This 53-nucleotide RNA sequence belongs to the Rfam family "Mu-gpT-DE RNA". Pairs were carried over by alignment from the consensus structure, which is taken from published work.
[Rfam]
RNA sequence: CCCUGACAGCCGCACAAUGUGGCUGACACUUGCCACGACAGGAGAUCAUCAUG
Numbered sequence: 001c002c003c004u005g006a007c008a009g010c011c012g013c014a015c016a017a018u019g020u021g022g023c024u025g026a027c028a029c030u031u032g033c034c035a036c037g038a039c040a041g042g043a044g045a046u047c048a049u050c051a052u053g
Base pairs, nucleotide, nucleotide: 002042003041004040005039007025008024009023010022011021